The record is a 98-nucleotide RNA sequence from Lachnospiraceae bacterium KM106-2, which matches "azaaromatic riboswitch aptamer (yjdF RNA)" in Rfam. NCBI's taxonomy places the organism under Bacteria, Bacillati, Clostridia, Lachnospirales, Lachnospiraceae. The base pairs follow the family's consensus structure, which is taken from published work.
[Rfam]
RNA sequence: ACUAGCAAAGAUAAAAACACGUCCCGGUAGGUAGUCCGGGAGCAGCGUAAGCUGUCAGUAACCUGCCUCCUUGGUUGUCCAUUCUUUGUUCAUUUUUG
Numbered sequence: 001a002c003u004a005g006c007a008a009a010g011a012u013a014a015a016a017a018c019a020c021g022u023c024c025c026g027g028u029a030g031g032u033a034g035u036c037c038g039g040g041a042g043c044a045g046c047g048u049a050a051g052c053u054g055u056c057a058g059u060a061a062c063c064u065g066c067c068u069c070c071u072u073g074g075u076u077g078u079c080c081a082u083u084c085u086u087u088g089u090u091c092a093u094u095u096u097u098g
Base pairs, nucleotide, nucleotide: 004090005089006088007087008086009085010084011083022041023040024039025038026037027036042055043054044053045052046051065075066074067073